[Rfam]
RNA sequence: UGAGAUAACUCAGGAGAAGGAACUCGGCAAAUUAAUACUGUAACUUAGGGAUAAAGUAUACCUUAUUAGUUUGAAUAAUUUACAUUAUAAGAAUGAAAAGGUUUAAAAAAAAAGAUAGCUGCGACUGUUUAAUAAAAACAUAGCACUCUGCUAACAUGUAAAUGGAUGUAUAGGGUGUGACGCCUGCCCGGUGCUGGAAGAUUAAAUAAUAAAGUUUUAAAAGCUUUUGACUUAAGUCCCAGUGAACGGCGGCCGUAACUAUAACGGUCCUAAGGUAGCGAAAUUCCUUGUCGGGUAAGUUCCGACCUGCACGAAUGGCGUAACGAUGGCUAUACUGUCUCCUCUUGAGGCUCA
Numbered sequence: 001u002g003a004g005a006u007a008a009c010u011c012a013g014g015a016g017a018a019g020g021a022a023c024u025c026g027g028c029a030a031a032u033u034a035a036u037a038c039u040g041u042a043a044c045u046u047a048g049g050g051a052u053a054a055a056g057u058a059u060a061c062c063u064u065a066u067u068a069g070u071u072u073g074a075a076u077a078a079u080u081u082a083c084a085u086u087a088u089a090a091g092a093a094u095g096a097a098a099a100g101g102u103u104u105a106a107a108a109a110a111a112a113a114g115a116u117a118g119c120u121g122c123g124a125c126u127g128u129u130u131a132a133u134a135a136a137a138a139c140a141u142a143g144c145a146c147u148c149u150g151c152u153a154a155c156a157u158g159u160a161a162a163u164g165g166a167u168g169u170a171u172a173g174g175g176u177g178u179g180a181c182g183c184c185u186g187c188c189c190g191g192u193g194c195u196g197g198a199a200g201a202u203u204a205a206a207u208a209a210u211a212a213a214g215u216u217u218u219a220a221a222a223g224c225u226u227u228u229g230a231c232u233u234a235a236g237u238c239c240c241a242g243u244g245a246a247c248g249g250c251g252g253c254c255g256u257a258a259c260u261a262u263a264a265c266g267g268u269c270c271u272a273a274g275g276u277a278g279c280g281a282a283a284u285u286c287c288u289u290g291u292c293g294g295g296u297a298a299g300u301u302c303c304g305a306c307c308u309g310c311a312c313g314a315a316u317g318g319c320g321u322a323a324c325g326a327u328g329g330c331u332a333u334a335c336u337g338u339c340u341c342c343u344c345u346u347g348a349g350g351c352u353c354a
Stems, first nucleotide, its partner, number of pairs: 001354004009349008018340003035059005044049001060102005075088005103107001115333007122325002126140003143178008151168001155164003181320004186250003191247002193243005200238003206232001211227005251269006270274001280307001290306006

Rfam assigns this 354-nucleotide part of an RNA from Candidatus Zinderia insecticola to the family "Bacterial large subunit ribosomal RNA". Gene Ontology terms of the family: ribosome and structural constituent of ribosome. Clan: LSU clan. It is one of the family's seed sequences.